[Rfam]
RNA sequence: UAUCAUUUUACGGGAGAGACUACAGAAUAUCGUAGCGCCGAAGGAGCAACCGCCCAGGAAUCUCUCAGGCAAAAAGGACCGUAACAUAUUA
Numbered sequence: 001u002a003u004c005a006u007u008u009u010a011c012g013g014g015a016g017a018g019a020c021u022a023c024a025g026a027a028u029a030u031c032g033u034a035g036c037g038c039c040g041a042a043g044g045a046g047c048a049a050c051c052g053c054c055c056a057g058g059a060a061u062c063u064c065u066c067a068g069g070c071a072a073a074a075a076g077g078a079c080c081g082u083a084a085c086a087u088a089u090u091a
Stems, first nucleotide, its partner, number of pairs: 006086001008084006020035004037070003040066002044064003050057001
Dot-bracket structure: .....(.((((((......((((........)))).(((((..(((...(......)....))))).)))........)))))).).....
Rfam assigns this 91-nucleotide RNA from Pelagibacterales bacterium SAG-MED43 to the family "Glycine riboswitch aptamer". The source organism's lineage runs through Bacteria, Pseudomonadati, Pseudomonadota, Alphaproteobacteria and Candidatus Pelagibacterales.